The record is a 74-nucleotide RNA sequence from Myotis lucifugus, which matches "mir-9193 microRNA precursor family" in Rfam.
RNA sequence: UUUGGCGAGGUGCGGUCCCUCAGCCCAGAUUGCGAGAGGGGGCAGGCCAGGCUGAAGGACCCCACCAGUGUACG
Numbered sequence: 001u002u003u004g005g006c007g008a009g010g011u012g013c014g015g016u017c018c019c020u021c022a023g024c025c026c027a028g029a030u031u032g033c034g035a036g037a038g039g040g041g042g043c044a045g046g047c048c049a050g051g052c053u054g055a056a057g058g059a060c061c062c063c064a065c066c067a068g069u070g071u072a073c074g
Stems, first nucleotide, its partner, number of pairs: 003072002009066002012063001014061005020055006028047001030045004
Lineage of the source: Eukaryota > Metazoa > Sarcopterygii > Dipnotetrapodomorpha > Myotis.